Description: icaR 3'UTR: a 390-nucleotide sequence from Staphylococcus aureus. It is annotated as a cis-regulatory element. On this family, see Ruiz de los Mozos et al., PLoS Genet 2013: "Base pairing interaction between 5'- and 3'-UTRs controls icaR mRNA translation in Staphylococcus aureus". The organism belongs to Staphylococcus aureus, within Bacteria.

[Rfam]
RNA sequence: UUUUUGUUACUAGUUUGUAAUAAUUAACUUACUUUUGUAAAAAAAGACAUGAGAUUAUUUUUUUAAAUCUAUAUAAAGUUGACAAUACAAAUCGAUAUUGAGAAUAUUAAGAUGUAUAUGAAUUUUAUAAAUUAAAUGCAAUACAUUAAUAUAAAUAUCAAUUGUUGCAAAAUACGAUUUGUUCAAUGAUUUUAUAAUAUUAUUCUUUAUAUUUGUGAAUGGUUAAGUUUGUCUUUGAACAUAUUAUAAAAGUGUAAUGUUCCCCUGAAAAGAAUAAGUUGUCAUCUAAUUACAGGAAAUCCGCAUAAAUUAGAUGAAAUGGAAAGUAAUAAGUAAUAAUUUAUUGAUAAGCGCCUAUGUGAUGGUAAAUCAUGACAUAGGCGCUUUUUU
Numbered sequence: 001u002u003u004u005u006g007u008u009a010c011u012a013g014u015u016u017g018u019a020a021u022a023a024u025u026a027a028c029u030u031a032c033u034u035u036u037g038u039a040a041a042a043a044a045a046g047a048c049a050u051g052a053g054a055u056u057a058u059u060u061u062u063u064u065a066a067a068u069c070u071a072u073a074u075a076a077a078g079u080u081g082a083c084a085a086u087a088c089a090a091a092u093c094g095a096u097a098u099u100g101a102g103a104a105u106a107u108u109a110a111g112a113u114g115u116a117u118a119u120g121a122a123u124u125u126u127a128u129a130a131a132u133u134a135a136a137u138g139c140a141a142u143a144c145a146u147u148a149a150u151a152u153a154a155a156u157a158u159c160a161a162u163u164g165u166u167g168c169a170a171a172a173u174a175c176g177a178u179u180u181g182u183u184c185a186a187u188g189a190u191u192u193u194a195u196a197a198u199a200u201u202a203u204u205c206u207u208u209a210u211a212u213u214u215g216u217g218a219a220u221g222g223u224u225a226a227g228u229u230u231g232u233c234u235u236u237g238a239a240c241a242u243a244u245u246a247u248a249a250a251a252g253u254g255u256a257a258u259g260u261u262c263c264c265c266u267g268a269a270a271a272g273a274a275u276a277a278g279u280u281g282u283c284a285u286c287u288a289a290u291u292a293c294a295g296g297a298a299a300u301c302c303g304c305a306u307a308a309a310u311u312a313g314a315u316g317a318a319a320u321g322g323a324a325a326g327u328a329a330u331a332a333g334u335a336a337u338a339a340u341u342u343a344u345u346g347a348u349a350a351g352c353g354c355c356u357a358u359g360u361g362a363u364g365g366u367a368a369a370u371c372a373u374g375a376c377a378u379a380g381g382c383g384c385u386u387u388u389u390u
Stems, first nucleotide, its partner, number of pairs: 004023007025281005030254011045070003050065005072129009082119001085117005092110001094108006137169007145162003149158003180241007188233003194228002199223007258276005282317010295302002327346008349386012362373003